[Rfam]
RNA sequence: AGGCCAGGAGAGAGAGGCAGGGUCUGAUCUGCAGCCGCCGUGGCAGCUGUUGAUCAGCCGUUGUCUCUCUUUCUCUCCA
Numbered sequence: 001a002g003g004c005c006a007g008g009a010g011a012g013a014g015a016g017g018c019a020g021g022g023u024c025u026g027a028u029c030u031g032c033a034g035c036c037g038c039c040g041u042g043g044c045a046g047c048u049g050u051u052g053a054u055c056a057g058c059c060g061u062u063g064u065c066u067c068u069c070u071u072u073c074u075c076u077c078c079a
Base pairs, nucleotide, nucleotide: 008073009072010071011070012069013068014067015066016065017064018063019062020061022059024057025056026055027054028053029052032049033048034047035046